[Rfam]
RNA sequence: CCUUCCGAGCCUCCAGCACCACGUGUCUGGGUCACGUGAGCAGGCCCACGUGGUCCUGAUGUGGUGUUGGGGCCGCAGGGCUC
Numbered sequence: 001c002c003u004u005c006c007g008a009g010c011c012u013c014c015a016g017c018a019c020c021a022c023g024u025g026u027c028u029g030g031g032u033c034a035c036g037u038g039a040g041c042a043g044g045c046c047c048a049c050g051u052g053g054u055c056c057u058g059a060u061g062u063g064g065u066g067u068u069g070g071g072g073c074c075g076c077a078g079g080g081c082u083c
Stems, first nucleotide, its partner, number of pairs: 004080003007076001009074001011072012025060003029057003033053001035052004040046001
The family of this 83-nucleotide RNA sequence from Erinaceus europaeus is "mir-770 microRNA precursor family".
Pairs were carried over by alignment from the consensus structure, which was predicted with RNAalifold.
The literature on the family includes a 2006 paper in Genome Res by Berezikov et al., "Many novel mammalian microRNA candidates identified by extensive cloning and RAKE analysis".
The source organism's lineage runs through Eukaryota, Eumetazoa, Euteleostomi, Theria and Erinaceus.
It scores 83 bits against the family's covariance model.